The family of this 194-nucleotide RNA is "IMES-1 RNA motif". The sequence is in the family's curated seed alignment. The base pairs follow the family's consensus structure, which is taken from published work. The family's RNA type in Rfam is non-coding RNA gene.

RNA sequence: UAAUUUUCGACUAGUGACCAACUGCAGACGGAAGAUCCUAGAGAAAAAUUAAAGGAAGAGACCAAAGGGUGAAAGCAUUUAUAAGAGUCGAUGAUAAAAAACAGCUUAUAAAUCCACCAAGAAUACAAGAGAAAGUAUUCAAGGAGCUAAAGAAAAUCUCACUUUAGACCCCUAAGGACCUCGAAUUAAAGAAA
Numbered sequence: 001u002a003a004u005u006u007u008c009g010a011c012u013a014g015u016g017a018c019c020a021a022c023u024g025c026a027g028a029c030g031g032a033a034g035a036u037c038c039u040a041g042a043g044a045a046a047a048a049u050u051a052a053a054g055g056a057a058g059a060g061a062c063c064a065a066a067g068g069g070u071g072a073a074a075g076c077a078u079u080u081a082u083a084a085g086a087g088u089c090g091a092u093g094a095u096a097a098a099a100a101a102c103a104g105c106u107u108a109u110a111a112a113u114c115c116a117c118c119a120a121g122a123a124u125a126c127a128a129g130a131g132a133a134a135g136u137a138u139u140c141a142a143g144g145a146g147c148u149a150a151a152g153a154a155a156a157u158c159u160c161a162c163u164u165u166a167g168a169c170c171c172c173u174a175a176g177g178a179c180c181u182c183g184a185a186u187u188a189a190a191g192a193a194a
Stems, first nucleotide, its partner, number of pairs: 001051004011041003014037001063176001066173003077113009121140005129160004147167006